The record is an 83-nucleotide sequence from Anaerosolibacter carboniphilus, which matches "Clostridiales-2 RNA" in Rfam.
RNA sequence: UAGAUAUGGGGUGUGCAGAGGGGAUUUCCCCUUUGCCGUUUUCAGGAAGGUGCUCAGCCUGCUUUGCAGGCGUCGAAGGAAAC
Numbered sequence: 001u002a003g004a005u006a007u008g009g010g011g012u013g014u015g016c017a018g019a020g021g022g023g024a025u026u027u028c029c030c031c032u033u034u035g036c037c038g039u040u041u042u043c044a045g046g047a048a049g050g051u052g053c054u055c056a057g058c059c060u061g062c063u064u065u066g067c068a069g070g071c072g073u074c075g076a077a078g079g080a081a082a083c
Stems, first nucleotide, its partner, number of pairs: 015036008057071005
Rfam classes the family as a small RNA.